[Rfam]
RNA: Purine riboswitch aptamer
Organism: Enterococcus casseliflavus
RNA sequence: AUCUAUCAUUUAAAAAUUACUUGUAUAUCGUCGAAAUAUGGUCGACAGUCUCUACCCGAUACCGUAAAUAUCGGACUAUAAGUAAAAAUCGUGCCUGU
Numbered sequence: 001a002u003c004u005a006u007c008a009u010u011u012a013a014a015a016a017u018u019a020c021u022u023g024u025a026u027a028u029c030g031u032c033g034a035a036a037u038a039u040g041g042u043c044g045a046c047a048g049u050c051u052c053u054a055c056c057c058g059a060u061a062c063c064g065u066a067a068a069u070a071u072c073g074g075a076c077u078a079u080a081a082g083u084a085a086a087a088a089u090c091g092u093g094c095c096u097g098u
Base pairs, nucleotide, nucleotide: 018084019083020082021081022080023079024078025077030046031045032044033043034042056074057073058072059071060070061069